[Rfam]
RNA sequence: CCGCCGCCCCAACGGCUUCCUGACGGGGCAGGUUAGUAAUACCGGAGCA
Numbered sequence: 001c002c003g004c005c006g007c008c009c010c011a012a013c014g015g016c017u018u019c020c021u022g023a024c025g026g027g028g029c030a031g032g033u034u035a036g037u038a039a040u041a042c043c044g045g046a047g048c049a
Base pairs, nucleotide, nucleotide: 004032005031006029007028008027009026010025013022014021015048016047017046019045020044
The family of this 49-nucleotide sequence from Pseudooceanicola algae is "SAM/SAH riboswitch aptamer". On this family, see Weickhmann et al., Nucleic Acids Res 2019: "The structure of the SAM/SAH-binding riboswitch". Gene Ontology terms of the family: S-adenosylmethionine metabolic process and regulation of gene expression. The family's consensus secondary structure is taken from published work. The source organism's lineage runs through Bacteria, Pseudomonadota, Alphaproteobacteria, Rhodobacterales and Pseudooceanicola. The match comes from Rfam's covariance-model search (52 bits).